[Rfam]
RNA sequence: GCGAUGAGCUAAUUUGCAUAAGACGAGAUUGACAUGCCUUAAUGGCAGGCACAAAUGUGGAGUGCCGUCUCUCGCCGCAAAACGCCAAAAAAGACGUCCGAAUGGACGUCUU
Numbered sequence: 001g002c003g004a005u006g007a008g009c010u011a012a013u014u015u016g017c018a019u020a021a022g023a024c025g026a027g028a029u030u031g032a033c034a035u036g037c038c039u040u041a042a043u044g045g046c047a048g049g050c051a052c053a054a055a056u057g058u059g060g061a062g063u064g065c066c067g068u069c070u071c072u073c074g075c076c077g078c079a080a081a082a083c084g085c086c087a088a089a090a091a092a093g094a095c096g097u098c099c100g101a102a103u104g105g106a107c108g109u110c111u112u
Stems, first nucleotide, its partner, number of pairs: 014080004024074005031069003036046002048066002051063002091112009
The record is a 112-nucleotide RNA sequence from Alkalihalobacillus alcalophilus, which matches "BsrF" in Rfam. The organism belongs to Alkalihalobacillus alcalophilus, within Bacteria. The base pairs follow the family's consensus structure, which was predicted with WAR.